Rfam assigns this 67-nucleotide RNA sequence from Glycine soja to the family "MIR4359 microRNA precursor family". It scores 79 bits against the family's covariance model.
[Rfam]
RNA sequence: AUGUUAACGUAUGAUAUAUUAACAUCGGUUUUUUGGAAAACCGAUGUUAAUGCAUAUACGUUAACAU
Numbered sequence: 001a002u003g004u005u006a007a008c009g010u011a012u013g014a015u016a017u018a019u020u021a022a023c024a025u026c027g028g029u030u031u032u033u034u035g036g037a038a039a040a041c042c043g044a045u046g047u048u049a050a051u052g053c054a055u056a057u058a059c060g061u062u063a064a065c066a067u
Stems, first nucleotide, its partner, number of pairs: 001067011014055002017052016
The organism belongs to Glycine subgen. Soja, within Eukaryota. Rfam 15.1 lists 187 matches to the family in 2 species. The base pairs follow the family's consensus structure, which was predicted with RNAalifold.